The record is a 122-nucleotide sequence from Phyllostomus discolor, which matches "Small nucleolar RNA SNORA26" in Rfam. Rfam classes the family as an H/ACA-box small nucleolar RNA. A reference for the family is Huttenhofer et al. (2001), "RNomics: an experimental approach that identifies 201 candidates for novel, small, non-messenger RNAs in mouse", EMBO J. The source organism's lineage runs through Eukaryota, Sarcopterygii, Theria, Phyllostominae and Phyllostomus. Rfam describes the family as follows. The snoRNA HBI-6 belong to the H/ACA family of snoRNAs, guiding the pseudouridylation of position U4522 if the 28S rRNA. HBI-6 is the human orthologue of mouse MBI-6 snoRNA.
RNA sequence: GAGCCCUUUUAAGGUUGAUACAAUGUCUUAGGAGGCUAACACAGAAGAGUAGAUAAAGUCUCCAUAAAACCCAGAGGCAAGAUGGUAAAACUCCCCUUUGGAUGCUGUCUGGAGUCACAGCU
Numbered sequence: 001g002a003g004c005c006c007u008u009u010u011a012a013g014g015u016u017g018a019u020a021c022a023a024u025g026u027c028u029u030a031g032g033a034g035g036c037u038a039a040c041a042c043a044g045a046a047g048a049g050u051a052g053a054u055a056a057a058g059u060c061u062c063c064a065u066a067a068a069a070c071c072c073a074g075a076g077g078c079a080a081g082a083u084g085g086u087a088a089a090a091c092u093c094c095c096c097u098u099u100g101g102a103u104g105c106u107g108u109c110u111g112g113a114g115u116c117a118c119a120g121c122u
Stems, first nucleotide, its partner, number of pairs: 003050002006047005014040004019035001021032001058116001060114005071101007080092002083090001